Background: The family of this 110-nucleotide RNA sequence from Niallia taxi is "PyrR binding site". The family has 41 seed sequences and 1,498 matches in Rfam 15.1. By type it is a cis-regulatory element. Taxonomically the source falls in Niallia (Bacteria, Bacillota, Caryophanales, Bacillaceae).

[Rfam]
RNA sequence: AGCCCUUUUUAAUGGCAGUCCGGAGAGGCUGCGAAGGGGGAGUCGAUACAGGCGUUGUUUCGCCUGCUCAAAAACCCCUUUUUGCUAUGCAUAAAAGGGGUUUUUUUAUG
Numbered sequence: 001a002g003c004c005c006u007u008u009u010u011a012a013u014g015g016c017a018g019u020c021c022g023g024a025g026a027g028g029c030u031g032c033g034a035a036g037g038g039g040g041a042g043u044c045g046a047u048a049c050a051g052g053c054g055u056u057g058u059u060u061c062g063c064c065u066g067c068u069c070a071a072a073a074a075c076c077c078c079u080u081u082u083u084g085c086u087a088u089g090c091a092u093a094a095a096a097g098g099g100g101u102u103u104u105u106u107u108a109u110g
Base pairs, nucleotide, nucleotide: 003039004038005037006036007035008034009033015032016031017030018029019028020027049066050065051064052063053062054061070105071104072103073102074101075100076099077098078097079096080095081094082093